The record is a 79-nucleotide RNA sequence from Thalictrum thalictroides, which matches "Small nucleolar RNA SNORD25" in Rfam. The family's consensus secondary structure was predicted with PFOLD. On this family, see Tycowski et al., Nature 1996: "A mammalian gene with introns instead of exons generating stable RNA products". Gene Ontology terms of the family: RNA processing and nucleolus. Lineage of the source: Eukaryota > Tracheophyta > Spermatophyta > Mesangiospermae > Thalictrum. It is annotated as a C/D-box small nucleolar RNA. Its Rfam clan is "SNORD25 clan".
RNA sequence: AUUAUCGAUGAUGACUCCAUAGACCUGUAAUGAUUGCGAAUAUGACCGCAAAUUUGAACAUCUAAGGGACUGAGAUUGA
Numbered sequence: 001a002u003u004a005u006c007g008a009u010g011a012u013g014a015c016u017c018c019a020u021a022g023a024c025c026u027g028u029a030a031u032g033a034u035u036g037c038g039a040a041u042a043u044g045a046c047c048g049c050a051a052a053u054u055u056g057a058a059c060a061u062c063u064a065a066g067g068g069a070c071u072g073a074g075a076u077u078g079a
Stems, first nucleotide, its partner, number of pairs: 002078001004076003